[Rfam]
The record is a 92-nucleotide sequence from Neotoma lepida, which matches "mir-568 microRNA precursor family" in Rfam. The match comes from Rfam's covariance-model search (89 bits). The organism belongs to Neotoma, within Eukaryota. Its family is annotated with miRNA-mediated post-transcriptional gene silencing and RISC complex in the Gene Ontology.
RNA sequence: ACAUACACUAUAUUAUGUGUGAAUUAUACACAUUUCCUAUAUAUGUCCACAUAUAUAUGGUGUAUAUAUUAUACAUGUAUAGGUGUGUGUGU
Numbered sequence: 001a002c003a004u005a006c007a008c009u010a011u012a013u014u015a016u017g018u019g020u021g022a023a024u025u026a027u028a029c030a031c032a033u034u035u036c037c038u039a040u041a042u043a044u045g046u047c048c049a050c051a052u053a054u055a056u057a058u059g060g061u062g063u064a065u066a067u068a069u070u071a072u073a074c075a076u077g078u079a080u081a082g083g084u085g086u087g088u089g090u091g092u
Stems, first nucleotide, its partner, number of pairs: 003086004008082006015076008024068001025066007038055005044049001